[Rfam]
RNA sequence: AAGCAGGACGCUUAGGGUUCCGCCGCUUUCCCAGCGGGUCAGGUCCGAGAAGCGUCACCCUUUUGGCAAAAUCCGAAAGGGCACACGGCGGGCCAAAAUCCCGGGAGGU
Numbered sequence: 001a002a003g004c005a006g007g008a009c010g011c012u013u014a015g016g017g018u019u020c021c022g023c024c025g026c027u028u029u030c031c032c033a034g035c036g037g038g039u040c041a042g043g044u045c046c047g048a049g050a051a052g053c054g055u056c057a058c059c060c061u062u063u064u065g066g067c068a069a070a071a072u073c074c075g076a077a078a079g080g081g082c083a084c085a086c087g088g089c090g091g092g093c094c095a096a097a098a099u100c101c102c103g104g105g106a107g108g109u
Base pairs, nucleotide, nucleotide: 007056008055009054010053011052012051015046016045020043021042022040023037024036025035026034027033058081059080060079061078062077063076064075065074066073084104086107090102091101092100
RNA: Guanidine-I riboswitch aptamer